[Rfam]
RNA sequence: UGAUGGCAGCGAUGAUUCCUAUGUUGUUGCUUUCCUGAUGUACAGAUGUGAGGGUGCACAGUCACUACCUCAUGUGAGCCAUCU
Numbered sequence: 001u002g003a004u005g006g007c008a009g010c011g012a013u014g015a016u017u018c019c020u021a022u023g024u025u026g027u028u029g030c031u032u033u034c035c036u037g038a039u040g041u042a043c044a045g046a047u048g049u050g051a052g053g054g055u056g057c058a059c060a061g062u063c064a065c066u067a068c069c070u071c072a073u074g075u076g077a078g079c080c081a082u083c084u
Stems, first nucleotide, its partner, number of pairs: 002083006
Dot-bracket structure: .((((((......................................................................)))))).
The family of this 84-nucleotide RNA sequence from Spizaetus tyrannus is "Small nucleolar RNA SNORD11B". The family's RNA type in Rfam is C/D-box small nucleolar RNA.